The family of this 140-nucleotide RNA sequence from Zingiber officinale is "Small nucleolar RNA snoR138". On this family, see Chen and Wu, Nucleic Acids Res 2009: "Mining small RNA sequencing data: a new approach to identify small nucleolar RNAs in Arabidopsis". Its family is annotated with nucleolus and RNA processing in the Gene Ontology. The source organism's lineage runs through Eukaryota, Embryophyta, Petrosaviidae, commelinids and Zingiber. It scores 49 bits against the family's covariance model. It is annotated as an H/ACA-box small nucleolar RNA.
RNA sequence: AAUGCCUCUUGAAUAACUGGAUGCAAGAAUUGCAAUGGUGUGCAUACAGUUCAGACGGUGGCAUAGAACAACAUGAAUCAUUGUUAGUGAAAGGAAUUUUUUUAUUUAAUUGUUCCUCUCUUAGAUGGCUUCAGAUAUUU
Numbered sequence: 001a002a003u004g005c006c007u008c009u010u011g012a013a014u015a016a017c018u019g020g021a022u023g024c025a026a027g028a029a030u031u032g033c034a035a036u037g038g039u040g041u042g043c044a045u046a047c048a049g050u051u052c053a054g055a056c057g058g059u060g061g062c063a064u065a066g067a068a069c070a071a072c073a074u075g076a077a078u079c080a081u082u083g084u085u086a087g088u089g090a091a092a093g094g095a096a097u098u099u100u101u102u103u104a105u106u107u108a109a110u111u112g113u114u115c116c117u118c119u120c121u122u123a124g125a126u127g128g129c130u131u132c133a134g135a136u137a138u139u140u
Base pairs, nucleotide, nucleotide: 003063004062005061006060009058015051016050017049018048019047021045022044023043024042025041074133075132076131077130079128081109082108083107086106087105090102091101092100093099094098115127117125118124119123